[Rfam]
RNA sequence: UACAACAGAAUCGGCUCCUCAAGGGUGGUCGGCUCAUCUCCCAUGUCGGAAACGGGGGAGGUGACGCCUGUGACAGUGUUCCAAGCAUUGACGUUGAUGAUUUCAUUCGCAAUGCUCGUGGUAGCGAUCCUGUCUUUCCCAAAAAAGAAAUAGACCUCCCUUGGGUCCAAAUCCGGAGAGGUCUAUCUCUAGUUAAUCCUUGAGCCGCCCCCAUGUAGGGAACGUCUGUUGUAUAGGCCGUAGGUGCUGGAACACCUGCG
Numbered sequence: 001u002a003c004a005a006c007a008g009a010a011u012c013g014g015c016u017c018c019u020c021a022a023g024g025g026u027g028g029u030c031g032g033c034u035c036a037u038c039u040c041c042c043a044u045g046u047c048g049g050a051a052a053c054g055g056g057g058g059a060g061g062u063g064a065c066g067c068c069u070g071u072g073a074c075a076g077u078g079u080u081c082c083a084a085g086c087a088u089u090g091a092c093g094u095u096g097a098u099g100a101u102u103u104c105a106u107u108c109g110c111a112a113u114g115c116u117c118g119u120g121g122u123a124g125c126g127a128u129c130c131u132g133u134c135u136u137u138c139c140c141a142a143a144a145a146a147g148a149a150a151u152a153g154a155c156c157u158c159c160c161u162u163g164g165g166u167c168c169a170a171a172u173c174c175g176g177a178g179a180g181g182u183c184u185a186u187c188u189c190u191a192g193u194u195a196a197u198c199c200u201u202g203a204g205c206c207g208c209c210c211c212c213a214u215g216u217a218g219g220g221a222a223c224g225u226c227u228g229u230u231g232u233a234u235a236g237g238c239c240g241u242a243g244g245u246g247c248u249g250g251a252a253c254a255c256c257u258g259c260g
Base pairs, nucleotide, nucleotide: 001233002232003231004230005229007227008226009225012207013206014205015204016203017202018165019164020163021162022161023160024159025158027155029153034064035063036062038060039059040058041057042056072134073133074132075131076130078128086099087098108126109125110124175190176189177188210220211219239260240259241258242257243256244255245254246253
Rfam assigns this 260-nucleotide RNA sequence from Brevibacillus brevis to the family "BsrG".
bsrE, bsrG and bsrH pair through intermolecular interactions with antisense sRNAs. They form type I toxin/antitoxin system that includes an mRNA encoding for a short, toxic peptide (bsrE, bsrG and bsrH) and an antitoxin that is comprised of an antisense RNA. bsrG encodes a 39-amino-acid toxin, and the 180 nucleotide antisense sRNA called SR4 acts as the antitoxin (they overlap by 123 nucleotides). SR4 interaction with the 3'UTR of bsrG RNA promotes bsrG degradation and inhibits its translation.
The match comes from Rfam's covariance-model search (117 bits).
Rfam 15.1 lists 614 matches to the family in 343 species.
The literature on the family includes a 2015 paper in Mol Microbiol by Jahn et al., "Against the mainstream: the membrane-associated type I toxin BsrG from Bacillus subtilis interferes with cell envelope biosynthesis without increasing membrane permeability".
It is annotated as a small RNA.